A member of the RNA family "Guanidine-I riboswitch aptamer" from Sporolactobacillus shoreae, 109 nucleotides long. The pairing is the family consensus, mapped onto this sequence. It scores 86 bits against the family's covariance model.
[Rfam]
RNA sequence: UAAACUGCUUUCUAGGGUUCCAGGCGGGCUGCAGAGUCCCGUCGAUUGGUCCGAGAGAAGGCGCACAAUAGUUGCAUUGUGAACACGGAGGGAUAAAAGCCCGGGAGAU
Numbered sequence: 001u002a003a004a005c006u007g008c009u010u011u012c013u014a015g016g017g018u019u020c021c022a023g024g025c026g027g028g029c030u031g032c033a034g035a036g037u038c039c040c041g042u043c044g045a046u047u048g049g050u051c052c053g054a055g056a057g058a059a060g061g062c063g064c065a066c067a068a069u070a071g072u073u074g075c076a077u078u079g080u081g082a083a084c085a086c087g088g089a090g091g092g093a094u095a096a097a098a099g100c101c102c103g104g105g106a107g108a109u
Base pairs, nucleotide, nucleotide: 007062008061009060010059011058012057015052016051020049021048022046023043024042025041026040027039028038064081065080066079067078068077069076084104086107090102091101092100